Shown here is a 116-nucleotide sequence from Kocuria flava, a member of the family "SAM (S-adenosyl methionine) riboswitch aptamer". The family's consensus secondary structure is taken from published work. Lineage of the source: Bacteria > Bacillati > Actinomycetota > Micrococcales > Kocuria. Rfam's curators write: SAM-IV is a mRNA element that regulates gene expression via direct sensing of S-adenosylmethionine (SAM or AdoMet). SAM-IV riboswitches share conserved nucleotide positions with the previously described SAM-I riboswitches sequence analysis and molecular recognition experiments suggest that SAM-I and SAM-IV riboswitches share similar ligand binding sites, but have different scaffolds. A search with the family's covariance model found it, with a score of 79 bits.

[Rfam]
RNA sequence: AAUCAUGAGCUCCGGUGCGAAGCCCUGGCUGGCCGGACGGCAACCCUCGACGCUGUAGCGGGGUGCCCCAGGUGAGGAUUCGGCCCGUGUCACCACCGCGCGGGUAAGUACGGCGU
Number, nucleotide and partner (000 for none) at each position: 001a080002a079003u078004c077005a000006u000007g000008a000009g038010c000011u037012c036013c035014g034015g033016u032017g000018c000019g000020a000021a030022g029023c000024c000025c000026u000027g000028g000029c022030u021031g000032g016033c015034c014035g013036g012037a011038c009039g067040g066041c065042a000043a000044c063045c062046c061047u000048c058049g000050a000051c000052g000053c000054u000055g000056u000057a000058g048059c000060g000061g046062g045063g044064u000065g041066c040067c039068c000069c000070a000071g000072g000073u000074g000075a000076g000077g004078a003079u002080u001081c000082g000083g105084c104085c103086c102087g101088u100089g099090u098091c000092a000093c000094c000095a000096c000097c000098g090099c089100g088101c087102g086103g085104g084105u083106a000107a000108g000109u000110a000111c000112g000113g000114c000115g000116u000